[Rfam]
Nucleotides: 073
Stems, first nucleotide, its partner, number of pairs: 002072001004070003008066001011063001013061002018059003022055001025052005030041002
Number, partner (000 for none) and nucleotide at each position: 001000a002072g003000u004070a005069a006068a007000g008066g009000a010000a011063c012000a013061u014060c015000a016000g017000u018059c019058c020057u021000g022055g023000g024000g025052u026051u027050g028049g029048g030041a031040u032000g033000a034000a035000a036000g037000a038000g039000g040031a041030u042000c043000g044000a045000c046000u047000c048029c049028c050027c051026a052025a053000a054000g055022u056000g057020a058019g059018g060014g061013a062000g063011g064000g065000a066008c067000g068006u069005u070004u071000c072002c073000a
Rfam assigns this 73-nucleotide RNA from Sus scrofa to the family "mir-9791 microRNA precursor family". Rfam links the family to the GO terms RISC complex and miRNA-mediated post-transcriptional gene silencing. Pairs were carried over by alignment from the consensus structure, which was predicted with RNAalifold.